[Rfam]
A member of the RNA family "Purine riboswitch aptamer" from Paenibacillus rigui, 102 nucleotides long. The organism belongs to Paenibacillus, within Bacteria.

RNA sequence: GCUAAAAAUGUCGAAGCAUCUCGUAUAAAGUCGGGAAUAUGGCCCGAAAGUUUCUACCCAAAAACCUUGAAUUUUUGGACUACGAGUACAGCGUUCAAUGAA
Dot-bracket structure: ...................((((((.....(((((.......)))))..........(((((((.......)))))))..))))))................